A member of the RNA family "msiK RNA" from Streptomyces roseolilacinus, 59 nucleotides long. The family's consensus secondary structure is taken from published work. The source organism's lineage runs through Bacteria, Actinomycetota, Actinomycetes, Streptomycetaceae and Streptomyces.
RNA sequence: ACACAUCCUUCCUUUACUCGGAUCGUCCGGCACGUUCCUGCCGGUGAAGGGACCCAUCA
Dot-bracket structure: .........(((((((..........((((((......)))))))))))))........
A search with the family's covariance model found it, with a score of 52 bits.